[Rfam]
RNA: Listeria sRNA rli28
RNA sequence: AUCAAACUGCUAUUAUCAACUUAAGCAAGUUCGACAUGGACGGUGGCUGACGAAUAGAAAGGAGGUUUUUCCUAUGGAAGAAUCUUAUGAAAGGACUCAGCCUGAUGACGCUUUACGAAGCAUUGUCGCUAGUUUUAAGGUCACUGAGCUUUCUUUGGAAAGUUUAUAC
Numbered sequence: 001a002u003c004a005a006a007c008u009g010c011u012a013u014u015a016u017c018a019a020c021u022u023a024a025g026c027a028a029g030u031u032c033g034a035c036a037u038g039g040a041c042g043g044u045g046g047c048u049g050a051c052g053a054a055u056a057g058a059a060a061g062g063a064g065g066u067u068u069u070u071c072c073u074a075u076g077g078a079a080g081a082a083u084c085u086u087a088u089g090a091a092a093g094g095a096c097u098c099a100g101c102c103u104g105a106u107g108a109c110g111c112u113u114u115a116c117g118a119a120g121c122a123u124u125g126u127c128g129c130u131a132g133u134u135u136u137a138a139g140g141u142c143a144c145u146g147a148g149c150u151u152u153c154u155u156u157g158g159a160a161a162g163u164u165u166a167u168a169c
Stems, first nucleotide, its partner, number of pairs: 043142001062086007070078002107127003112122001114120001147164004152159002